[Rfam]
RNA sequence: GUCAGCACUAAUUAAGCUUAAGGACCUACGUUCAGGGUAUUUAUUGCCCUCCCUGGUCCUGGGAAGGUCUGAGACCCGCACCUGAAUUCACACCUUCUAGCCGGAGGCUUCUCGAAGAGGGAAGGCAAGGGAACAAGAAAUAGCGGUAAGUGGAAGCCUGUGCUUGCGACGCAGUAAUGCUGAAGCUGCGCUUCUGCUCUAUCGGUGGAAACUCUUGUGGUGUGCUGUUUUAGUGGGAUUAGCUUGGCGUAAUGUCUUACGUAACUCAAUUCAGACUAGUCUAGUGCUGGC
Numbered sequence: 001g002u003c004a005g006c007a008c009u010a011a012u013u014a015a016g017c018u019u020a021a022g023g024a025c026c027u028a029c030g031u032u033c034a035g036g037g038u039a040u041u042u043a044u045u046g047c048c049c050u051c052c053c054u055g056g057u058c059c060u061g062g063g064a065a066g067g068u069c070u071g072a073g074a075c076c077c078g079c080a081c082c083u084g085a086a087u088u089c090a091c092a093c094c095u096u097c098u099a100g101c102c103g104g105a106g107g108c109u110u111c112u113c114g115a116a117g118a119g120g121g122a123a124g125g126c127a128a129g130g131g132a133a134c135a136a137g138a139a140a141u142a143g144c145g146g147u148a149a150g151u152g153g154a155a156g157c158c159u160g161u162g163c164u165u166g167c168g169a170c171g172c173a174g175u176a177a178u179g180c181u182g183a184a185g186c187u188g189c190g191c192u193u194c195u196g197c198u199c200u201a202u203c204g205g206u207g208g209a210a211a212c213u214c215u216u217g218u219g220g221u222g223u224g225c226u227g228u229u230u231u232a233g234u235g236g237g238a239u240u241a242g243c244u245u246g247g248c249g250u251a252a253u254g255u256c257u258u259a260c261g262u263a264a265c266u267c268a269a270u271u272c273a274g275a276c277u278a279g280u281c282u283a284g285u286g287c288u289g290g291c
Stems, first nucleotide, its partner, number of pairs: 001291004008284003013246006021060005035049005069274005079222004093107005108124006125218007144204003247262006